[Rfam]
RNA sequence: UAAAUUAUGUGUGGGGCCAUUAAAGGAGCGUUCACAAAGCGGUCCCUGUCAAAUGAAAAUAUGUGAAGCCUUCA
Numbered sequence: 001u002a003a004a005u006u007a008u009g010u011g012u013g014g015g016g017c018c019a020u021u022a023a024a025g026g027a028g029c030g031u032u033c034a035c036a037a038a039g040c041g042g043u044c045c046c047u048g049u050c051a052a053a054u055g056a057a058a059a060u061a062u063g064u065g066a067a068g069c070c071u072u073c074a
Base pairs, nucleotide, nucleotide: 013046014045015044016043017042018041021074023072024071025070026069028040029039050063051062053060054059

Shown here is a 74-nucleotide sequence from Strongylocentrotus purpuratus, a member of the family "Mammalian CPEB3 ribozyme". NCBI's taxonomy places the organism under Eukaryota, Eumetazoa, Eleutherozoa, Camarodonta, Strongylocentrotus. Its family is annotated with RNA nuclease activity in the Gene Ontology.